A member of the RNA family "S16-Flavobacteria ribosomal protein leader" from Urechidicola croceus, 35 nucleotides long. The family's RNA type in Rfam is cis-regulatory leader.
RNA sequence: AUAAAUAAUCAAGGUCGAGAACCUUAAAAUUUUAA
Numbered sequence: 001a002u003a004a005a006u007a008a009u010c011a012a013g014g015u016c017g018a019g020a021a022c023c024u025u026a027a028a029a030u031u032u033u034a035a
Base pairs, nucleotide, nucleotide: 002034003033004032005031011025012024013023014022015021

The family's consensus secondary structure is taken from published work.